Rfam assigns this 101-nucleotide RNA from Lachnoclostridium sp. An118 to the family "THF (Tetrahydrofolate) riboswitch aptamer". Pairs were carried over by alignment from the consensus structure, which is taken from published work. The match comes from Rfam's covariance-model search (95 bits). From the family's description: Tetrahydrofolate (THF) riboswitch was first reported for Ames et al. as an RNA motif in 5' untranslated (5'-UTR)regions of folate transport and biosynthesis genes in Firmicutes genomes.

RNA sequence: AGCAGAGUAGGAAGAUGUGCGUUAAGUGCCGGAUGGACGGGGAGUUGCCAGCCGGACGAAAAGCAAGAGUGCUUGCGGUGCAUAUUCCGCAUCCCGCUGCU
Numbered sequence: 001a002g003c004a005g006a007g008u009a010g011g012a013a014g015a016u017g018u019g020c021g022u023u024a025a026g027u028g029c030c031g032g033a034u035g036g037a038c039g040g041g042g043a044g045u046u047g048c049c050a051g052c053c054g055g056a057c058g059a060a061a062a063g064c065a066a067g068a069g070u071g072c073u074u075g076c077g078g079u080g081c082a083u084a085u086u087c088c089g090c091a092u093c094c095c096g097c098u099g100c101u
Base pairs, nucleotide, nucleotide: 001101002100003099004098005097010088011087012086013085015083016082017081018080019079020077021076022075026057027056029055030054031053032052034050035049036048040094041093042092044090061074062073063072064071